[Rfam]
The family of this 158-nucleotide RNA sequence from Glycine max is "MIR4371 microRNA precursor family". A search with the family's covariance model found it, with a score of 112 bits. Its family is annotated with miRNA-mediated post-transcriptional gene silencing and RISC complex in the Gene Ontology. Rfam 15.1 lists 321 matches to the family in 4 species. The family's consensus secondary structure was predicted with RNAalifold. Lineage of the source: Eukaryota > Magnoliopsida > eudicotyledons > rosids > Glycine subgen. Soja.
RNA sequence: UCAUUAAGUGAUGAUGAGACAGACGGAAUGCCGUGUCUUCACGCCUAACCAUUAACACGCCAGUGCUACGUCAUUGAGGGUGAUGACGUGACACUGAGGUGUCUGUGACAAGGCGUGAUGAUGUAACACUCUAUCUGCUACGUUAUCACUUAACGGAA
Numbered sequence: 001u002c003a004u005u006a007a008g009u010g011a012u013g014a015u016g017a018g019a020c021a022g023a024c025g026g027a028a029u030g031c032c033g034u035g036u037c038u039u040c041a042c043g044c045c046u047a048a049c050c051a052u053u054a055a056c057a058c059g060c061c062a063g064u065g066c067u068a069c070g071u072c073a074u075u076g077a078g079g080g081u082g083a084u085g086a087c088g089u090g091a092c093a094c095u096g097a098g099g100u101g102u103c104u105g106u107g108a109c110a111a112g113g114c115g116u117g118a119u120g121a122u123g124u125a126a127c128a129c130u131c132u133a134u135c136u137g138c139u140a141c142g143u144u145a146u147c148a149c150u151u152a153a154c155g156g157a158a
Base pairs, nucleotide, nucleotide: 001156002155004153005152006151007150008149009148010147011146012145013144014143015142016141018139020137021136022135023134025132026131027130029128030127033124034123035122036121037120039118040117041116042115043114044113045112046111050107051106052105055102056101057100058099070087071086072085073084074083